This 67-nucleotide sequence from Hemibagrus wyckioides belongs to the Rfam family "Small nucleolar RNA SNORD42". It scores 39 bits against the family's covariance model. The literature on the family includes a 2002 paper in Mol Cell Biol by Galardi et al., "Purified box C/D snoRNPs are able to reproduce site-specific 2'-O-methylation of target RNA in vitro". It is annotated as a C/D-box small nucleolar RNA. Pairs were carried over by alignment from the consensus structure, which was predicted with PFOLD. snoRNA U42 is found in intron 3 of the ribosomal protein L23a (RPL23a) gene in humans and is also present in mice.
RNA sequence: GAGCAUGUGAUGUCAUUAUUUUCUGACUGAAUGAAUUUUGAUGCAUUCAAAGGAACCACUGAUGCUC
Numbered sequence: 001g002a003g004c005a006u007g008u009g010a011u012g013u014c015a016u017u018a019u020u021u022u023c024u025g026a027c028u029g030a031a032u033g034a035a036u037u038u039u040g041a042u043g044c045a046u047u048c049a050a051a052g053g054a055a056c057c058a059c060u061g062a063u064g065c066u067c
Stems, first nucleotide, its partner, number of pairs: 001067005